[Rfam]
RNA sequence: UUUAAUGUUGUUCGAAACCAUCCAACAUAAAAAAACUAGGGGGAA
Numbered sequence: 001u002u003u004a005a006u007g008u009u010g011u012u013c014g015a016a017a018c019c020a021u022c023c024a025a026c027a028u029a030a031a032a033a034a035a036c037u038a039g040g041g042g043g044a045a
Base pairs, nucleotide, nucleotide: 006027007026008025009024010023016037
RNA: PreQ1 (pre queuosine) riboswitch aptamer